[Rfam]
RNA sequence: CAAGACCUUCGGGGCAGGGUGAGGCGCCUGGCGCCAAUUCCCGACCGGCGGUAUAGCCCGCGAGCGGCGAGAGCCGCAGGAUCCGGUGAAACUCCGGGGCCGACGGUAUAGUCCGGAUGGGAGAAGGUAUGC
Numbered sequence: 001c002a003a004g005a006c007c008u009u010c011g012g013g014g015c016a017g018g019g020u021g022a023g024g025c026g027c028c029u030g031g032c033g034c035c036a037a038u039u040c041c042c043g044a045c046c047g048g049c050g051g052u053a054u055a056g057c058c059c060g061c062g063a064g065c066g067g068c069g070a071g072a073g074c075c076g077c078a079g080g081a082u083c084c085g086g087u088g089a090a091a092c093u094c095c096g097g098g099g100c101c102g103a104c105g106g107u108a109u110a111g112u113c114c115g116g117a118u119g120g121g122a123g124a125a126g127g128u129a130u131g132c
Stems, first nucleotide, its partner, number of pairs: 003130001005128006017042003044112002046102002048061004056100002064077003082098005104115003
The family of this 132-nucleotide RNA sequence from Sphaerobacter thermophilus is "FMN riboswitch aptamer (RFN element)". The family's consensus secondary structure is taken from published work. NCBI's taxonomy places the organism under Bacteria, Pseudomonadati, Thermomicrobiota, Sphaerobacterales, Sphaerobacter thermophilus.